Rfam assigns this 164-nucleotide sequence from Paenibacillus xylanivorans to the family "PyrR binding site". Rfam links the family to the GO terms pyrimidine nucleobase transport and pyrimidine nucleobase biosynthetic process. The family has 41 seed sequences and 1,498 matches in Rfam 15.1. Lineage of the source: Bacteria > Bacillati > Bacillota > Caryophanales > Paenibacillus. The family's consensus secondary structure is taken from published work. By type it is a cis-regulatory element.
RNA sequence: AGCACCUUUAAAUCAGUCCCGUGAGACUGGCAAGGUAACGUGAACGAUACAUCGUUUUUUUGCUGCGGCAAAUGAAGCGAUGCAUCCCGAGAGUAAACUUUCUUCAGAGCGGUCUGAAGUUCGGAGACUCCUUGCCAAUUAACACGGCAAGGAGUCUUUUUUUU
Numbered sequence: 001a002g003c004a005c006c007u008u009u010a011a012a013u014c015a016g017u018c019c020c021g022u023g024a025g026a027c028u029g030g031c032a033a034g035g036u037a038a039c040g041u042g043a044a045c046g047a048u049a050c051a052u053c054g055u056u057u058u059u060u061u062g063c064u065g066c067g068g069c070a071a072a073u074g075a076a077g078c079g080a081u082g083c084a085u086c087c088c089g090a091g092a093g094u095a096a097a098c099u100u101u102c103u104u105c106a107g108a109g110c111g112g113u114c115u116g117a118a119g120u121u122c123g124g125a126g127a128c129u130c131c132u133u134g135c136c137a138a139u140u141a142a143c144a145c146g147g148c149a150a151g152g153a154g155u156c157u158u159u160u161u162u163u164u
Stems, first nucleotide, its partner, number of pairs: 004036005013030006050082008123159014